Small nucleolar RNA snoR639/H1: a 128-nucleotide RNA sequence from Drosophila melanogaster. Rfam's curators put it in the seed alignment. The family has 9 seed sequences and 77 matches in Rfam 15.1. From the family's description: snoR639 or snoH1 belongs to the H/ACA class of snoRNAs which are thought to guide the sites of modification of uridines to pseudouridines. snoH1 is found in an intron of the mfl gene in Drosophila. Taxonomically the source falls in Sophophora (Eukaryota, Endopterygota, Diptera, Drosophilinae). The base pairs follow the family's consensus structure.
[Rfam]
RNA sequence: UAAGCCGGCAGGUGCCUGCAAUCCCCACGGGCACCUGUGACUAUGAUUGGGAACAGCAAAGCUGCUGAUGUGUGUAUGUUGGGCAGCGCUCUUAUCCUGCGCGCUCGACAAAGAAUAUUCGGUCGACA
Number, nucleotide and partner (000 for none) at each position: 001u000002a000003a000004g000005c000006c000007g000008g038009c037010a036011g035012g034013u033014g032015c031016c000017u000018g000019c000020a000021a000022u000023c000024c000025c000026c000027a000028c000029g000030g000031g015032c014033a013034c012035c011036u010037g009038u008039g000040a000041c000042u000043a000044u000045g000046a000047u000048u000049g000050g000051g000052a000053a000054c000055a000056g000057c000058a000059a000060a000061g000062c000063u000064g000065c122066u121067g120068a119069u000070g000071u000072g000073u000074g000075u000076a000077u110078g109079u108080u107081g106082g105083g104084c000085a000086g102087c101088g100089c099090u000091c000092u000093u000094a000095u000096c000097c000098u000099g089100c088101g087102c086103g000104c083105u082106c081107g080108a079109c078110a077111a000112a000113g000114a000115a000116u000117a000118u000119u068120c067121g066122g065123u000124c000125g000126a000127c000128a000